[Rfam]
RNA sequence: CUGUCGUUGCGGCUCAUCGUAUGGCAGUUUGCUGGAAACGAUACGCCAGCUGCCUAGCGAAGGGCAACAAUAGACGG
Numbered sequence: 001c002u003g004u005c006g007u008u009g010c011g012g013c014u015c016a017u018c019g020u021a022u023g024g025c026a027g028u029u030u031g032c033u034g035g036a037a038a039c040g041a042u043a044c045g046c047c048a049g050c051u052g053c054c055u056a057g058c059g060a061a062g063g064g065c066a067a068c069a070a071u072a073g074a075c076g077g
Stems, first nucleotide, its partner, number of pairs: 003075003007070003012065004017060004023054004031050003
Rfam assigns this 77-nucleotide RNA sequence from Eumeta japonica to the family "mir-745 microRNA precursor family". A search with the family's covariance model found it, with a score of 68 bits. Its family is annotated with RISC complex and miRNA-mediated post-transcriptional gene silencing in the Gene Ontology.